[Rfam]
RNA sequence: CCGUGGUAGGCGGGGAGCUAGCGGUGCCCUGUAAUUCGCAAUCCGCUUUAGCGAGGCUGAAUUCCUUUUCUGCUGUAUGACAGUGUAAGGUUUGCCUUAUGUAAGCGGUGUUGACCUUCGGAGUCCUCGCAACAGAUACCCAUCAGAUUGGUCAGGUCGGGAACGAAGCAGCCAUAAGUGGUCAUUUCUGUGUGUCGAAGGAUUGCUCUGAAUGAGCUUGCUGCAUGAGUAACACUUAUAUUUCGAUAUCAAUGAUAGGUUCACGG
Numbered sequence: 001c002c003g004u005g006g007u008a009g010g011c012g013g014g015g016a017g018c019u020a021g022c023g024g025u026g027c028c029c030u031g032u033a034a035u036u037c038g039c040a041a042u043c044c045g046c047u048u049u050a051g052c053g054a055g056g057c058u059g060a061a062u063u064c065c066u067u068u069u070c071u072g073c074u075g076u077a078u079g080a081c082a083g084u085g086u087a088a089g090g091u092u093u094g095c096c097u098u099a100u101g102u103a104a105g106c107g108g109u110g111u112u113g114a115c116c117u118u119c120g121g122a123g124u125c126c127u128c129g130c131a132a133c134a135g136a137u138a139c140c141c142a143u144c145a146g147a148u149u150g151g152u153c154a155g156g157u158c159g160g161g162a163a164c165g166a167a168g169c170a171g172c173c174a175u176a177a178g179u180g181g182u183c184a185u186u187u188c189u190g191u192g193u194g195u196c197g198a199a200g201g202a203u204u205g206c207u208c209u210g211a212a213u214g215a216g217c218u219u220g221c222u223g224c225a226u227g228a229g230u231a232a233c234a235c236u237u238a239u240a241u242u243u244c245g246a247u248a249u250c251a252a253u254g255a256u257a258g259g260u261u262c263a264c265g266g
Stems, first nucleotide, its partner, number of pairs: 001266006009058003012030004017025003035055005064259003069255002075249004082242008093231002097228006105221002107218003117212008125201003128197002130192002133190004140181004149174004157166003
Shown here is a 266-nucleotide RNA from Schinkia azotoformans, a member of the family "Bacterial large signal recognition particle RNA". A search with the family's covariance model found it, with a score of 164 bits. The literature on the family includes a 2009 paper in RNA Biol by Rosenblad et al., "Kinship in the SRP RNA family". Pairs were carried over by alignment from the consensus structure, which is taken from published work.